RNA: Small nucleolar RNA SNORA61
Organism: Cricetulus griseus
RNA sequence: GCUCUCUGGUUCCCUUUCCUAUCAGAUUUUGACACUGGUUUGGGUGCUUGUAAAGAAGGAAGAAUACACUGAAGCUCGAUUCAUAGGAAUGUAGUCUGGUAUAGAGCAUAGGGCCAGAUUCACACAGGC
Numbered sequence: 001g002c003u004c005u006c007u008g009g010u011u012c013c014c015u016u017u018c019c020u021a022u023c024a025g026a027u028u029u030u031g032a033c034a035c036u037g038g039u040u041u042g043g044g045u046g047c048u049u050g051u052a053a054a055g056a057a058g059g060a061a062g063a064a065u066a067c068a069c070u071g072a073a074g075c076u077c078g079a080u081u082c083a084u085a086g087g088a089a090u091g092u093a094g095u096c097u098g099g100u101a102u103a104g105a106g107c108a109u110a111g112g113g114c115c116a117g118a119u120u121c122a123c124a125c126a127g128g129c
Stems, first nucleotide, its partner, number of pairs: 003059003007055001020046004025040004075117002078114001080112002090108003